[Rfam]
Source information:
The family of this 126-nucleotide RNA from Yersinia pestis is "RtT RNA". For this family Rfam cites "A novel RNA product of the tyrT operon of Escherichia coli" (Bosl and Kersten, Nucleic Acids Res, 1991). Rfam describes the family as follows. This family represents a bacterial cis-regulatory element known as RtT RNA. The exact function of RtT is unknown although it is thought that it may be involved in changing the cellular response in relation to amino acid starvation. The source organism's lineage runs through Bacteria, Enterobacterales, Yersinia, Yersinia pseudotuberculosis complex and Yersinia pestis. Rfam's curators put it in the seed alignment. By type it is a cis-regulatory element. Gene Ontology term of the family: cellular response to amino acid starvation.
RNA sequence: UUCUCAUAUCUGGGGAAGGUAAGAACCUUCGACAAGGUUCGCGCCGAGCGUAGCGAGACAACGACGCAAAGCGGCGGCCCGAAGGGUGAGGAACGCAGUGACGAAUAAUCCUGAGACUGUAAACAA
Numbered sequence: 001u002u003c004u005c006a007u008a009u010c011u012g013g014g015g016a017a018g019g020u021a022a023g024a025a026c027c028u029u030c031g032a033c034a035a036g037g038u039u040c041g042c043g044c045c046g047a048g049c050g051u052a053g054c055g056a057g058a059c060a061a062c063g064a065c066g067c068a069a070a071g072c073g074g075c076g077g078c079c080c081g082a083a084g085g086g087u088g089a090g091g092a093a094c095g096c097a098g099u100g101a102c103g104a105a106u107a108a109u110c111c112u113g114a115g116a117c118u119g120u121a122a123a124c125a126a
Stems, first nucleotide, its partner, number of pairs: 015117001017112003020108001030088002033085001038083004045055002062076002065073003